[Rfam]
RNA sequence: GUGUUAUCAAGAAAGGUAGAGGGAAUAGACCCAAUGAAACCUUGGCAACCCUUUAACUUGUAAAGAAGGUGCUACGUUCUACUGUUAAUUCUGAAAUUAUUUCAGACAUAAAACAGAAAGAUAACGA
Numbered sequence: 001g002u003g004u005u006a007u008c009a010a011g012a013a014a015g016g017u018a019g020a021g022g023g024a025a026u027a028g029a030c031c032c033a034a035u036g037a038a039a040c041c042u043u044g045g046c047a048a049c050c051c052u053u054u055a056a057c058u059u060g061u062a063a064a065g066a067a068g069g070u071g072c073u074a075c076g077u078u079c080u081a082c083u084g085u086u087a088a089u090u091c092u093g094a095a096a097u098u099a100u101u102u103c104a105g106a107c108a109u110a111a112a113a114c115a116g117a118a119a120g121a122u123a124a125c126g127a
Base pairs, nucleotide, nucleotide: 002126003125004124005123006122007121008120013043014042015041016040017039021032022031023030026081027080028079029078044073045072046071047070049069050068051065052064053063054062077119082116083115084114085113086112
Dot-bracket structure: .(((((((....(((((...(((..[[[[)))......)))))((((.((((((.......))))..))))))...(]]]](((((.........................)))))..)))))))).
Background: A member of the RNA family "SAM riboswitch aptamer (S box leader)" from Seonamhaeicola sp. S2-3, 127 nucleotides long. The organism belongs to Seonamhaeicola, within Bacteria. The base pairs follow the family's consensus structure, which is taken from published work. It scores 80 bits against the family's covariance model.